[Rfam]
RNA sequence: AAAGUAUUGCAAAUUCAAUAUAUUGCGGUUCCCUUGUAGGCCU
Numbered sequence: 001a002a003a004g005u006a007u008u009g010c011a012a013a014u015u016c017a018a019u020a021u022a023u024u025g026c027g028g029u030u031c032c033c034u035u036g037u038a039g040g041c042c043u
Stems, first nucleotide, its partner, number of pairs: 004031001006029001008027005
About this RNA: ES036 (CssrF) sRNA: a 43-nucleotide RNA sequence from Escherichia coli. The base pairs follow the family's consensus structure, which was predicted with RNAfold. The family has 4 seed sequences and 273 matches in Rfam 15.1. Rfam describes the family as follows. Differentially expressed under several chemical stress conditions. Also identified in Shigella as CssrF.